[Rfam]
Record summary: This 158-nucleotide RNA sequence from Gottschalkia acidurici belongs to the Rfam family "Lysine riboswitch aptamer". From the family's description: Riboswitches are metabolite binding domains within certain messenger RNAs that serve as precision sensors for their corresponding targets. Rfam links the family to the GO term lysine biosynthetic process.

RNA sequence: AUAUGUUAUAGGGGCCGCGGUUGUAAAUAGUACUUUUGUAGGAAAGGUGCAAUCGCCGAAAUACACUAUUUAAUUUGUGUAUUGGGACUAUGCUGAAUAAGUAUAGUACUGUCAACAGAAUUUUUGCCCAAUUUUCUGCUGGAGCACUUAUCAUAUUG
Numbered sequence: 001a002u003a004u005g006u007u008a009u010a011g012g013g014g015c016c017g018c019g020g021u022u023g024u025a026a027a028u029a030g031u032a033c034u035u036u037u038g039u040a041g042g043a044a045a046g047g048u049g050c051a052a053u054c055g056c057c058g059a060a061a062u063a064c065a066c067u068a069u070u071u072a073a074u075u076u077g078u079g080u081a082u083u084g085g086g087a088c089u090a091u092g093c094u095g096a097a098u099a100a101g102u103a104u105a106g107u108a109c110u111g112u113c114a115a116c117a118g119a120a121u122u123u124u125u126g127c128c129c130a131a132u133u134u135u136c137u138g139c140u141g142g143a144g145c146a147c148u149u150a151u152c153a154u155a156u157u158g
Base pairs, nucleotide, nucleotide: 006153008151009150010149011147017056018055019054020053021052022051023050024049025048033041034040060083061082062081063080064079065078066077068075084110085109087107088106089105090104091103092102093101094100112142113141114140116138117137118136119135120134